[Rfam]
RNA sequence: AGACUACCAAACCCUAUCUCCACUUCCAUGUGGUGACCGCUGGGAGUUCUUUCUUAAUGAAAAACUACAGAAGGGGAAGG
Numbered sequence: 001a002g003a004c005u006a007c008c009a010a011a012c013c014c015u016a017u018c019u020c021c022a023c024u025u026c027c028a029u030g031u032g033g034u035g036a037c038c039g040c041u042g043g044g045a046g047u048u049c050u051u052u053c054u055u056a057a058u059g060a061a062a063a064a065c066u067a068c069a070g071a072a073g074g075g076g077a078a079g080g
Base pairs, nucleotide, nucleotide: 013080014079015078017076018075019074020073022034023033024032045066046065047064048063050061051060053059
Record summary
drz-agam-1 ribozyme: an 80-nucleotide RNA from Hermetia illucens. Gene Ontology term of the family: catalytic activity. A reference for the family is Webb et al. (2009), "Widespread occurrence of self-cleaving ribozymes", Science.